[Rfam]
RNA sequence: UGUGGGCAGGGCCCUGGGGAGCUGAGGCUCUGGGGGUGGCCGGGGCUGACCCCUGGGCCUCUGCUCCCCAGUGUCUGACCGUG
Numbered sequence: 001u002g003u004g005g006g007c008a009g010g011g012c013c014c015u016g017g018g019g020a021g022c023u024g025a026g027g028c029u030c031u032g033g034g035g036g037u038g039g040c041c042g043g044g045g046c047u048g049a050c051c052c053c054u055g056g057g058c059c060u061c062u063g064c065u066c067c068c069c070a071g072u073g074u075c076u077g078a079c080c081g082u083g
Base pairs, nucleotide, nucleotide: 002082003081004080005079009076010075011074012073014071015070016069017068018067019066020065021064022063024061025060026059027058028057029056030055033054034052035051036050037049038047039046040045
A member of the RNA family "mir-939 microRNA precursor family" from Macaca mulatta, 83 nucleotides long. The base pairs follow the family's consensus structure, which was predicted with RNAalifold. The sequence is in the family's curated seed alignment.